RNA sequence: CGCCAACCGCGUGACUGGCGACUGAGAUGGAGCACCAUCGGGGAGCGCGGGGCCGACGCCGCAUCGCCUGGGCAUCUCUC
Number, nucleotide and partner (000 for none) at each position: 001c000002g000003c052004c051005a000006a000007c050008c049009g048010c047011g046012u045013g000014a000015c042016u041017g068018g067019c066020g065021a064022c000023u000024g000025a000026g000027a038028u037029g036030g035031a000032g000033c000034a000035c030036c029037a028038u027039c000040g000041g016042g015043g000044a000045g012046c011047g010048c009049g008050g007051g004052g003053c000054c000055g000056a075057c000058g073059c072060c071061g000062c000063a000064u021065c020066g019067c018068c017069u000070g000071g060072g059073c058074a000075u056076c000077u000078c000079u000080c000
This 80-nucleotide sequence from Sphingomonas sp. G-3-2-10 belongs to the Rfam family "ZMP/ZTP riboswitch aptamer (pfl RNA motif)". On this family, see Jones et al., Acta Crystallogr F Struct Biol Commun 2019: "Co-crystal structure of the Fusobacterium ulcerans ZTP riboswitch using an X-ray free-electron laser". The source organism's lineage runs through Bacteria, Pseudomonadati, Alphaproteobacteria, Sphingomonadales and Sphingomonas.